Annotation: Rfam assigns this 89-nucleotide sequence from Streptomyces sp. SDr-06 to the family "sodF sRNA". Pairs were carried over by alignment from the consensus structure. Rfam 15.1 lists 336 matches to the family in 317 species. It is annotated as a small RNA.

RNA sequence: GCGUCCUGCUCGUGAUCGUCUUCUCAACCUUCACGUGCGGGCGGAUGAAACGGACGGCCCCGCGAGGACGUGACUCGCGGGGCCGUUCG
Number, nucleotide and partner (000 for none) at each position: 001g000002c043003g042004u000005c041006c040007u039008g038009c037010u000011c035012g034013u033014g032015a031016u000017c000018g028019u027020c000021u000022u000023c000024u000025c000026a000027a019028c018029c000030u000031u015032c014033a013034c012035g011036u000037g009038c008039g007040g006041g005042c003043g002044g000045a000046u000047g000048a000049a000050a000051c089052g088053g087054a086055c085056g084057g083058c082059c081060c080061c079062g078063c077064g076065a075066g074067g000068a000069c000070g000071u000072g000073a000074c066075u065076c064077g063078c062079g061080g060081g059082g058083c057084c056085g055086u054087u053088c052089g051
Rfam links the family to the GO terms negative regulation of translation, mRNA binding and regulation of mRNA stability.